[Rfam]
RNA sequence: ACAGGCUUAGGGCCACAACAGAAGCACUCAUGGUGAGGCACUGUCAGAUUACAAGGAAUCUGUGAAUUUUGCU
Numbered sequence: 001a002c003a004g005g006c007u008u009a010g011g012g013c014c015a016c017a018a019c020a021g022a023a024g025c026a027c028u029c030a031u032g033g034u035g036a037g038g039c040a041c042u043g044u045c046a047g048a049u050u051a052c053a054a055g056g057a058a059u060c061u062g063u064g065a066a067u068u069u070u071g072c073u
Base pairs, nucleotide, nucleotide: 010041012039013038014037017073019071020070021069022068023067025035026034045062046061047060048059049058050057
Dot-bracket structure: .........[.[[[..(.(((((.((.......)).]]].]...((((((......))))))....))))).)